[Rfam]
RNA sequence: CUUGUGGACUGUUAUAUCAACUGUACUAGCGAGCUUUUAGCGAGGCAGGACAGGAUGAAACAAGAA
Dot-bracket structure: (((((...(((((.......(((.....((.........))....))))))))......)))))..
RNA: RAGATH-18 RNA
Organism: Tybeckvirus tv521B